About this RNA
Shown here is an 87-nucleotide sequence from Brevibacillus sp. SYP-B805, a member of the family "c-di-GMP-I riboswitch aptamer". The base pairs follow the family's consensus structure, which is taken from published work. Rfam 15.1 lists 5,092 matches to the family in 1,772 species.
RNA sequence: CUCCGAUAAUCGCAAACUUGUCGAAAGGCAGGGACGCAAAGCCAUGGGCCUAAGGAAAGCAUUUUCUAUGGUUGCCAGGUUGCCGAA
Number, nucleotide and partner (000 for none) at each position: 001c000002u000003c000004c000005g000006a000007u000008a000009a000010u000011c000012g037013c036014a000015a000016a000017c032018u031019u030020g029021u028022c027023g000024a000025a000026a000027g022028g021029c020030a019031g018032g017033g000034a000035c000036g013037c012038a000039a000040a081041g080042c079043c078044a000045u077046g076047g075048g072049c071050c070051u000052a000053a000054g000055g066056a065057a064058a063059g000060c000061a000062u000063u058064u057065u056066c055067u000068a000069u000070g050071g049072u048073u000074g000075c047076c046077a045078g043079g042080u041081u040082g000083c000084c000085g000086a000087a000